Overview: A member of the RNA family "small nucleolar RNA snoR135" from Vigna radiata, 140 nucleotides long. The base pairs follow the family's consensus structure, which was predicted with RNAalifold. Its family is annotated with nucleolus and RNA processing in the Gene Ontology.
RNA sequence: AGAGCAGGGAUAGUGUGUAUCGGUGUUUGCUCUGUUCAAUGCACUCUUCCGAAAGUUUUCCCUGCGACAUCGUUUUGAGAAAGUGGGCAGUUGUGUUUCAUCCUUUAUUGAAAAUCACAACAAUCAUUUUCCCUACAUCU
Numbered sequence: 001a002g003a004g005c006a007g008g009g010a011u012a013g014u015g016u017g018u019a020u021c022g023g024u025g026u027u028u029g030c031u032c033u034g035u036u037c038a039a040u041g042c043a044c045u046c047u048u049c050c051g052a053a054a055g056u057u058u059u060c061c062c063u064g065c066g067a068c069a070u071c072g073u074u075u076u077g078a079g080a081a082a083g084u085g086g087g088c089a090g091u092u093g094u095g096u097u098u099c100a101u102c103c104u105u106u107a108u109u110g111a112a113a114a115u116c117a118c119a120a121c122a123a124u125c126a127u128u129u130u131c132c133c134u135a136c137a138u139c140u
Stems, first nucleotide, its partner, number of pairs: 004065007015044006077133001079131008090121004